[Rfam]
RNA sequence: UCCACCUUGCGCAACUGGCGAAUCCUGGGGCUGCCGCCGGCAGUACCCGGCAGUGGGCAUUGACCACGAGGAAGCGCAAGGUCUCUGGCGUCAUGCACAACGACGCCUGCCGCUCGCCUGGGCAGCGAAU
Numbered sequence: 001u002c003c004a005c006c007u008u009g010c011g012c013a014a015c016u017g018g019c020g021a022a023u024c025c026u027g028g029g030g031c032u033g034c035c036g037c038c039g040g041c042a043g044u045a046c047c048c049g050g051c052a053g054u055g056g057g058c059a060u061u062g063a064c065c066a067c068g069a070g071g072a073a074g075c076g077c078a079a080g081g082u083c084u085c086u087g088g089c090g091u092c093a094u095g096c097a098c099a100a101c102g103a104c105g106c107c108u109g110c111c112g113c114u115c116g117c118c119u120g121g122g123c124a125g126c127g128a129a130u
Base pairs, nucleotide, nucleotide: 004082005081006080007079008078009077010076011075012074015071016070017118018117019116020115021114053067054066055065056064107125108124109123110122111121
RNA: ZMP/ZTP riboswitch aptamer (pfl RNA motif)
Organism: Ralstonia solanacearum